[Rfam]
RNA sequence: AAAAUUUAUGUGCUAUAAGCUAACUUGUACAACAGUUCGGCUCACCCUCAUUUUUAUUGAAAGGGGGUGAAGCUUAUGUCAGUUUACGAGGCGAUUUCUUUGAUGAUUUCCUUUGGUGCCUUAAUUGCACUGCUGACAAUAGACAGAGAAAAAUAGACCUCCCUUGAGUCUCCAACCUUGGGGGAUGGUCUAUUUUUUUCUACUCAUCUGAGCCAGUUCCUCUUUUGAGUAGCAGCUAUUUGUAUAUUCAACCGUAGGUGUUCCAGCACUUACA
Dot-bracket structure: ((.((.((..(.......(((..((((.......(((....(((.((((..............))))))).......((((((........((..........))..........(((.......)))...))))))..................)))......))))...........(..............)...................)))(.((.........)).)...)..)).)).)).....((((((((....)))))))).

Shown here is a 274-nucleotide RNA from Oceanobacillus profundus, a member of the family "BsrG". A reference for the family is Jahn et al. (2012), "BsrG/SR4 from Bacillus subtilis--the first temperature-dependent type I toxin-antitoxin system", Mol Microbiol. The source organism's lineage runs through Bacteria, Bacillati, Bacillota, Bacillaceae and Oceanobacillus. The base pairs follow the family's consensus structure, which was predicted with WAR. Rfam's curators write: bsrE, bsrG and bsrH pair through intermolecular interactions with antisense sRNAs. They form type I toxin/antitoxin system that includes an mRNA encoding for a short, toxic peptide (bsrE, bsrG and bsrH) and an antitoxin that is comprised of an antisense RNA. bsrG encodes a 39-amino-acid toxin, and the 180 nucleotide antisense sRNA called SR4 acts as the antitoxin (they overlap by 123 nucleotides). SR4 interaction with the 3'UTR of bsrG RNA promotes bsrG degradation and inhibits its translation. BsrG interferes with cell envelope biosynthesis, causes membrane invaginations and delocalisation of the cell wall synthesis and initiates autolysis. bsrE RNA encodes 30 amino-acid toxin peptide. Its antitoxin gene, SR5 overlaps by 112 nucleotides at the 3' end of bsrE. SR5 also overlaps bsrG from nucleotide 163 to 52 (Rfam overlap check). The antitoxin SR5 promotes bsrE degradation but unlike SR4 it does not directly inhibits toxin mRNA translation.